[Rfam]
RNA sequence: GCUUUCAACAUCCCCGUUCCAGGACGGCGAGACCAAAGCGCAAUCCGCGCUGCGAAUGUGUCGUUGCUGGGGCUGAAGGC
Numbered sequence: 001g002c003u004u005u006c007a008a009c010a011u012c013c014c015c016g017u018u019c020c021a022g023g024a025c026g027g028c029g030a031g032a033c034c035a036a037a038g039c040g041c042a043a044u045c046c047g048c049g050c051u052g053c054g055a056a057u058g059u060g061u062c063g064u065u066g067c068u069g070g071g072g073c074u075g076a077a078g079g080c
Base pairs, nucleotide, nucleotide: 001080002079003078004077005076006075007074013066016073017072018071019070020069021068022067024065026062027061028060029059031057
The family of this 80-nucleotide sequence from Candidatus Korobacter versatilis is "nadA riboswitch". It is annotated as a small RNA. Pairs were carried over by alignment from the consensus structure, which is taken from published work.